This 83-nucleotide RNA sequence from Colletotrichum spaethianum belongs to the Rfam family "tRNA".
The base pairs follow the family's consensus structure, which is taken from published work.
NCBI's taxonomy places the organism under Eukaryota, Dikarya, saccharomyceta, Hypocreomycetidae, Colletotrichum spaethianum species complex.
Rfam's curators write: Transfer RNA (tRNA) molecules are approximately 80 nucleotides in length.
It is annotated as a transfer RNA.

[Rfam]
RNA sequence: UCCCCGAUAGUCUAGUGGUGAGGAUAUCUGCUUGUCAUUUAAACGAUUCGCAGGGGACCGGGGUUCAAUUCCCCGUCGAGGAG
Numbered sequence: 001u002c003c004c005c006g007a008u009a010g011u012c013u014a015g016u017g018g019u020g021a022g023g024a025u026a027u028c029u030g031c032u033u034g035u036c037a038u039u040u041a042a043a044c045g046a047u048u049c050g051c052a053g054g055g056g057a058c059c060g061g062g063g064u065u066c067a068a069u070u071c072c073c074c075g076u077c078g079a080g081g082a083g
Stems, first nucleotide, its partner, number of pairs: 001082003005078003010025004027054005059075005